[Rfam]
RNA sequence: GUAUCUUUGCCGGGUUCCACCUCCUCCCGGAACCCGAUGCAAAAGCGGCGACAUCGCUCCUCCUCCCUAGAUGUCGCCGCCCUUC
Numbered sequence: 001g002u003a004u005c006u007u008u009g010c011c012g013g014g015u016u017c018c019a020c021c022u023c024c025u026c027c028c029g030g031a032a033c034c035c036g037a038u039g040c041a042a043a044a045g046c047g048g049c050g051a052c053a054u055c056g057c058u059c060c061u062c063c064u065c066c067c068u069a070g071a072u073g074u075c076g077c078c079g080c081c082c083u084u085c
Base pairs, nucleotide, nucleotide: 008037010036012035013034014033015032016031017030018029046079047078048077049076050075051074052073053072054071055070
RNA: Conserved CCUCCUCCC motif stress-induced RNA 1
Organism: Gemmobacter lutimaris